[Rfam]
RNA sequence: GCCAUCCUUUCCUUGGGAUUGUGCUACUGUCCCAUGUGCGCAUAGUGAGGGCGGUACUGCUAAUGUCUGAGCAACACACCCGCAUCACCUACAGCUUUGCUUUACCUUGGUGCAAUUUUUGGAAAA
Numbered sequence: 001g002c003c004a005u006c007c008u009u010u011c012c013u014u015g016g017g018a019u020u021g022u023g024c025u026a027c028u029g030u031c032c033c034a035u036g037u038g039c040g041c042a043u044a045g046u047g048a049g050g051g052c053g054g055u056a057c058u059g060c061u062a063a064u065g066u067c068u069g070a071g072c073a074a075c076a077c078a079c080c081c082g083c084a085u086c087a088c089c090u091a092c093a094g095c096u097u098u099g100c101u102u103u104a105c106c107u108u109g110g111u112g113c114a115a116u117u118u119u120u121g122g123a124a125a126a
Stems, first nucleotide, its partner, number of pairs: 007017003021060003026055007038046002082113006090104002093101003